[Rfam]
RNA sequence: CAGUUUCUUGCUUCAACAGUGCUUGGAUGGAACCC
Numbered sequence: 001c002a003g004u005u006u007c008u009u010g011c012u013u014c015a016a017c018a019g020u021g022c023u024u025g026g027a028u029g030g031a032a033c034c035c
Base pairs, nucleotide, nucleotide: 003034005032006031007030008029010028012027013026014025015024016023017021
Background:
Shown here is a 35-nucleotide RNA from Saimiri boliviensis, a member of the family "Iron response element I". NCBI's taxonomy places the organism under Eukaryota, Sarcopterygii, Haplorrhini, Saimiriinae, Saimiri boliviensis. It scores 43 bits against the family's covariance model. A reference for the family is Hentze et al. (1987), "Identification of the iron-responsive element for the translational regulation of human ferritin mRNA", Science. Gene Ontology term of the family: response to iron ion. Rfam classes the family as a cis-regulatory element. The base pairs follow the family's consensus structure, which is taken from published work.